[Rfam]
Annotation
The record is a 73-nucleotide RNA from Chloropsis cyanopogon, which matches "tRNA" in Rfam. NCBI's taxonomy places the organism under Eukaryota, Opisthokonta, Sarcopterygii, Theropoda, Chloropsis. The base pairs follow the family's consensus structure, which is taken from published work.
RNA sequence: GCCUGGCUAGCUCAGUCGGUAGAGCAUGGGACUCUUAAUCCCAGGAUUGUGGGUUCGAGCCACACAAUGGGCG
Numbered sequence: 001g002c003c004u005g006g007c008u009a010g011c012u013c014a015g016u017c018g019g020u021a022g023a024g025c026a027u028g029g030g031a032c033u034c035u036u037a038a039u040c041c042c043a044g045g046a047u048u049g050u051g052g053g054u055u056c057g058a059g060c061c062a063c064a065c066a067a068u069g070g071g072c073g
Stems, first nucleotide, its partner, number of pairs: 001072005010025004027043005049065003053061001